[Rfam]
RNA: Bacillaceae-1 RNA
RNA sequence: UUUCAGAGAUCUUCGGCUAAUUAAUCCCACAUCCUGUGGCAAACGCCGAAGUCAGCACAUCCUGUGCA
Numbered sequence: 001u002u003u004c005a006g007a008g009a010u011c012u013u014c015g016g017c018u019a020a021u022u023a024a025u026c027c028c029a030c031a032u033c034c035u036g037u038g039g040c041a042a043a044c045g046c047c048g049a050a051g052u053c054a055g056c057a058c059a060u061c062c063u064g065u066g067c068a
Stems, first nucleotide, its partner, number of pairs: 011051007027039004055067004